The record is a 79-nucleotide RNA sequence from Astyanax mexicanus, which matches "mir-19 microRNA precursor family" in Rfam. Its Rfam clan is "mir-19 clan".
[Rfam]
RNA sequence: AGCGAUGGCGAGUUUUGCAGGUUUGCAUCCAGCUUUAAUAUAUUACGCUGUGCAAAUCCAUGCAAAACUGGCCGUUACA
Numbered sequence: 001a002g003c004g005a006u007g008g009c010g011a012g013u014u015u016u017g018c019a020g021g022u023u024u025g026c027a028u029c030c031a032g033c034u035u036u037a038a039u040a041u042a043u044u045a046c047g048c049u050g051u052g053c054a055a056a057u058c059c060a061u062g063c064a065a066a067a068c069u070g071g072c073c074g075u076u077a078c079a
Base pairs, nucleotide, nucleotide: 004076005075006074007073008072009071011069012068013067014066015065016064017063018062019061020059021058022056023055024054025053026052027051028050031049032048033047

NCBI's taxonomy places the organism under Eukaryota, Gnathostomata, Actinopterygii, Ostariophysi, Astyanax. The base pairs follow the family's consensus structure, which was predicted with RNAalifold. For this family Rfam cites "Identification of novel genes coding for small expressed RNAs" (Lagos-Quintana et al., Science, 2001).